Shown here is a 74-nucleotide RNA from Isoptericola sediminis, a member of the family "Actino-pnp RNA". The source organism's lineage runs through Bacteria, Bacillati, Actinomycetota, Micrococcales and Isoptericola. The family's consensus secondary structure is taken from published work.
[Rfam]
RNA sequence: UCCGGUCCUCGGUAGUGGCCCCCCGAUCCGCCGGUUCCCCCGGUGUGCUCCGAGGGCCUCGAUCGAAGACCGUC
Numbered sequence: 001u002c003c004g005g006u007c008c009u010c011g012g013u014a015g016u017g018g019c020c021c022c023c024c025g026a027u028c029c030g031c032c033g034g035u036u037c038c039c040c041c042g043g044u045g046u047g048c049u050c051c052g053a054g055g056g057c058c059u060c061g062a063u064c065g066a067a068g069a070c071c072g073u074c
Base pairs, nucleotide, nucleotide: 003072004071005070006069007068009066010065011064012063013062017058018057019056020055021054023052025050026049028047